[Rfam]
RNA: mir-219 microRNA precursor family
Organism: Dissostichus mawsoni
RNA sequence: CUAGCUGCUGAUUGUCCAAACGCAAUUCUUGUUGCAUUUUUAAUCCAACCCGAGAAUUGUGCAUGGACAUCUGUUGCUUG
Numbered sequence: 001c002u003a004g005c006u007g008c009u010g011a012u013u014g015u016c017c018a019a020a021c022g023c024a025a026u027u028c029u030u031g032u033u034g035c036a037u038u039u040u041u042a043a044u045c046c047a048a049c050c051c052g053a054g055a056a057u058u059g060u061g062c063a064u065g066g067a068c069a070u071c072u073g074u075u076g077c078u079u080g
Stems, first nucleotide, its partner, number of pairs: 003078003007074001010071003014068005021061011